[Rfam]
RNA sequence: CCAUGUUCUGAUGAUUAGAAAUAUAUUCAAUUGCUCUGAGUUGGCUGAAUGAAACUACCCAUUCUGAACACAUGA
Number, nucleotide and partner (000 for none) at each position: 001c000002c074003a073004u072005g071006u070007u000008c000009u000010g000011a000012u000013g000014a000015u000016u000017a000018g000019a000020a000021a000022u000023a000024u000025a000026u000027u000028c000029a000030a000031u000032u000033g000034c000035u000036c000037u000038g000039a000040g000041u000042u000043g000044g000045c000046u000047g000048a000049a000050u000051g000052a000053a000054a000055c000056u000057a000058c000059c000060c000061a000062u000063u000064c000065u000066g000067a000068a000069c000070a006071c005072a004073u003074g002075a000

Shown here is a 75-nucleotide RNA sequence from Jaculus jaculus, a member of the family "Small nucleolar RNA Z40".
Rfam classes the family as a C/D-box small nucleolar RNA.
Rfam 15.1 lists 615 matches to the family in 541 species.
The source organism's lineage runs through Eukaryota, Bilateria, Gnathostomata, Rodentia and Jaculus.
The literature on the family includes a 2003 paper in Nucleic Acids Res by Chen et al., "The high diversity of snoRNAs in plants: identification and comparative study of 120 snoRNA genes from Oryza sativa".
The family's consensus secondary structure was predicted with PFOLD.
Its family is annotated with nucleolus and RNA processing in the Gene Ontology.